[Rfam]
RNA sequence: AAAGUGUCGUCGGGAGAACCGGUUCAUCCGGUGCCGAAGGAGCAACCGCCCCGGAAACUCUCAGGCCAAAGGACCGACGCCGCCAA
Number, nucleotide and partner (000 for none) at each position: 001a000002a000003a000004g000005u000006g081007u000008c079009g078010u077011c076012g075013g074014g000015a000016g000017a000018a000019c031020c030021g029022g028023u000024u000025c000026a000027u000028c022029c021030g020031g019032u000033g066034c065035c064036g062037a061038a000039g000040g060041a059042g058043c000044a000045a000046c054047c053048g000049c000050c000051c000052c000053g047054g046055a000056a000057a000058c042059u041060c040061u037062c036063a000064g035065g034066c033067c000068a000069a000070a000071g000072g000073a000074c013075c012076g011077a010078c009079g008080c000081c006082g000083c000084c000085a000086a000
This 86-nucleotide sequence from Poseidonocella pacifica belongs to the Rfam family "Glycine riboswitch aptamer". It scores 63 bits against the family's covariance model. NCBI's taxonomy places the organism under Bacteria, Pseudomonadati, Alphaproteobacteria, Roseobacteraceae, Poseidonocella.